[Rfam]
RNA sequence: CUUCAGGGGAAUGUUGUCCGGUUCGACACCAUUCUUAUGAACUAAAAGAUAUCAUAGAAUGAUUUCGGACCAGGCUUCAUUCCCCUUAAC
Numbered sequence: 001c002u003u004c005a006g007g008g009g010a011a012u013g014u015u016g017u018c019c020g021g022u023u024c025g026a027c028a029c030c031a032u033u034c035u036u037a038u039g040a041a042c043u044a045a046a047a048g049a050u051a052u053c054a055u056a057g058a059a060u061g062a063u064u065u066c067g068g069a070c071c072a073g074g075c076u077u078c079a080u081u082c083c084c085c086u087u088a089a090c
Base pairs, nucleotide, nucleotide: 002089003088005086006085007084008083009082010081011080012079013078016075017074018073020071021070024067025066026065